[Rfam]
RNA sequence: GGGACGGGUUGGGCAAUCGCGGUGUUUCGACACCGAGGAAGGUCCGGACUCCACAGAGCAGGAUAGCGGCUAACGGCCGCCCGGCGAACCGGCGUGCGCGAGCAAGCCGGUUCGUUGAGGAACAGGGCCACAGAGACGAGUCUGCGGCGCGGGCAUGCCUGGCAUGCACUGGCACGGCUACUUCCGUGUUGCGCGACCUGGCGACAGGGCGCGGCGCAGCAGGGUGAAACGCGGCAACCUCUAUCCGGAGCAACAUCAAAUAGGCAUACACAGGCCCUCGGGCCCGAAGGGCGGCUCGUUCGAGUAUGCGGGUAGAUGGCUAGAGCACGGCAGCAAUGUCGUGCGUAGAGGAAUGAUUGCCCGCCAGGCUUGCCUGGUGUACAGAAUCCGGCCUAUAGACCCGUCCCGCCU
Numbered sequence: 001g002g003g004a005c006g007g008g009u010u011g012g013g014c015a016a017u018c019g020c021g022g023u024g025u026u027u028c029g030a031c032a033c034c035g036a037g038g039a040a041g042g043u044c045c046g047g048a049c050u051c052c053a054c055a056g057a058g059c060a061g062g063a064u065a066g067c068g069g070c071u072a073a074c075g076g077c078c079g080c081c082c083g084g085c086g087a088a089c090c091g092g093c094g095u096g097c098g099c100g101a102g103c104a105a106g107c108c109g110g111u112u113c114g115u116u117g118a119g120g121a122a123c124a125g126g127g128c129c130a131c132a133g134a135g136a137c138g139a140g141u142c143u144g145c146g147g148c149g150c151g152g153g154c155a156u157g158c159c160u161g162g163c164a165u166g167c168a169c170u171g172g173c174a175c176g177g178c179u180a181c182u183u184c185c186g187u188g189u190u191g192c193g194c195g196a197c198c199u200g201g202c203g204a205c206a207g208g209g210c211g212c213g214g215c216g217c218a219g220c221a222g223g224g225u226g227a228a229a230c231g232c233g234g235c236a237a238c239c240u241c242u243a244u245c246c247g248g249a250g251c252a253a254c255a256u257c258a259a260a261u262a263g264g265c266a267u268a269c270a271c272a273g274g275c276c277c278u279c280g281g282g283c284c285c286g287a288a289g290g291g292c293g294g295c296u297c298g299u300u301c302g303a304g305u306a307u308g309c310g311g312g313u314a315g316a317u318g319g320c321u322a323g324a325g326c327a328c329g330g331c332a333g334c335a336a337u338g339u340c341g342u343g344c345g346u347a348g349a350g351g352a353a354u355g356a357u358u359g360c361c362c363g364c365c366a367g368g369c370u371u372g373c374c375u376g377g378u379g380u381a382c383a384g385a386a387u388c389c390g391g392c393c394u395a396u397a398g399a400c401c402c403g404u405c406c407c408g409c410c411u
Stems, first nucleotide, its partner, number of pairs: 001407010011396001012361007020035006040394003044391005049250004056297004061246005066080005081119001082117012120241002125239002127235003142223002144220002147217004152212001254318004264309006289301004325344008
Dot-bracket structure: ((((((((((((((((((.((((((....))))))....[[[.[[[[[((((...[[[[.((((((((((.....)))))(((((((((((((............)))))))))))).)((...(((((............((((.((((.(...........................................................).)))).)).)).........)))..)))))))))))))...((((......((((((...................((((.]]]]))))..)))))).....))))......((((((((....))))))))..........))))))).........................]]]]]]]].).))))))))))....